The family of this 140-nucleotide RNA from Polymorphum gilvum is "Alphaproteobacterial sRNA BjrC1505". The pairing is the family consensus, mapped onto this sequence. The organism belongs to Polymorphum gilvum, within Bacteria. The sequence is in the family's curated seed alignment. The family's RNA type in Rfam is small RNA.
RNA sequence: UUUAGUCGUUUACUUCUUGUUAAGCUUUCUGAUUGAUAACUAAAACGUCCAGUCAUCUGGAUUUCGAGUGGCUCCUGUCCACUCUGUUUGACGCCUCCCUGUUAAUGACUUCGAGCCGCGGGUUCCGCGGCUCUUUUUUU
Numbered sequence: 001u002u003u004a005g006u007c008g009u010u011u012a013c014u015u016c017u018u019g020u021u022a023a024g025c026u027u028u029c030u031g032a033u034u035g036a037u038a039a040c041u042a043a044a045a046c047g048u049c050c051a052g053u054c055a056u057c058u059g060g061a062u063u064u065c066g067a068g069u070g071g072c073u074c075c076u077g078u079c080c081a082c083u084c085u086g087u088u089u090g091a092c093g094c095c096u097c098c099c100u101g102u103u104a105a106u107g108a109c110u111u112c113g114a115g116c117c118g119c120g121g122g123u124u125c126c127g128c129g130g131c132u133c134u135u136u137u138u139u140u
Stems, first nucleotide, its partner, number of pairs: 001044004017036001021035003025031001048061004066084006090103004113133009